The record is a 67-nucleotide sequence from Pipistrellus kuhlii, which matches "mir-9256 microRNA precursor family" in Rfam. Rfam links the family to the GO terms RISC complex and miRNA-mediated post-transcriptional gene silencing. A search with the family's covariance model found it, with a score of 81 bits. The family's consensus secondary structure was predicted with RNAalifold. The source organism's lineage runs through Eukaryota, Vertebrata, Dipnotetrapodomorpha, Boreoeutheria and Pipistrellus.
[Rfam]
RNA sequence: UUAUACAUGGAGUGGCCAGAUUAUUAUGCAUUCAGAAAUCAUAAUAAUCUGGCCACUCGGUGUAUAU
Numbered sequence: 001u002u003a004u005a006c007a008u009g010g011a012g013u014g015g016c017c018a019g020a021u022u023a024u025u026a027u028g029c030a031u032u033c034a035g036a037a038a039u040c041a042u043a044a045u046a047a048u049c050u051g052g053c054c055a056c057u058c059g060g061u062g063u064a065u066a067u
Stems, first nucleotide, its partner, number of pairs: 004064005010058008019049010